[Rfam]
Rfam assigns this 91-nucleotide sequence from Brevundimonas naejangsanensis to the family "nhaA-II RNA". It is annotated as a cis-regulatory element.

RNA sequence: AUCAGGCCCCGCGCGGCAUCGCCCAGGGGUCAGGCCGGCGCCGCCUUGCGCGCGAAUCCGGUCCGGCGUCCGUCGAUAACCUGACGCCACG
Numbered sequence: 001a002u003c004a005g006g007c008c009c010c011g012c013g014c015g016g017c018a019u020c021g022c023c024c025a026g027g028g029g030u031c032a033g034g035c036c037g038g039c040g041c042c043g044c045c046u047u048g049c050g051c052g053c054g055a056a057u058c059c060g061g062u063c064c065g066g067c068g069u070c071c072g073u074c075g076a077u078a079a080c081c082u083g084a085c086g087c088c089a090c091g
Stems, first nucleotide, its partner, number of pairs: 005031006033063006039054003042050002065088006